Glycine riboswitch aptamer: a 97-nucleotide sequence from Sphingomonas suaedae. The organism belongs to Sphingomonas, within Bacteria.

Nucleotides: 097
Stems, first nucleotide, its partner, number of pairs: 007091007020041002023038003043076003046072002050070003056064002
Number, partner (000 for none) and nucleotide at each position: 001000a002000a003000g004000g005000c006000a007091c008090g009089c010088g011087c012086g013085g014000g015000a016000g017000a018000g019000u020041u021040u022000g023038c024037g025036g026000g027000u028000c029000c030000c031000c032000g033000g034000a035000u036025c037024c038023g039000g040021a041020a042000c043076g044075c045074c046072g047071a048000a049000g050070g051069a052068g053000c054000a055000a056064c057063c058000g059000c060000c061000c062000c063057g064056g065000a066000a067000u068052c069051u070050c071047u072046c073000a074045g075044g076043c077000a078000u079000c080000a081000g082000g083000g084000a085013c086012c087011g088010c089009g090008c091007g092000g093000g094000c095000c096000a097000c